[Rfam]
RNA: Glycine riboswitch aptamer
RNA sequence: GACGUCGACGCGCGAGAGUCCAUCCCCGGUGGAUGGCGCCGAAGGGGCAACCUCCCCGGAACCUCUCAGGCACCAAGGACCGCGGACGACGG
Number, nucleotide and partner (000 for none) at each position: 001g000002a000003c000004g000005u000006c000007g000008a000009c084010g083011c082012g081013c000014g000015a000016g000017a000018g000019u000020c036021c035022a034023u033024c000025c000026c000027c000028g000029g000030u000031g000032g000033a023034u022035g021036g020037c000038g071039c070040c069041g067042a066043a000044g000045g065046g064047g063048c000049a000050a000051c059052c058053u000054c000055c000056c000057c000058g052059g051060a000061a000062c000063c047064u046065c045066u042067c041068a000069g040070g039071c038072a000073c000074c000075a000076a000077g000078g000079a000080c000081c012082g011083c010084g009085g000086a000087c000088g000089a000090c000091g000092g000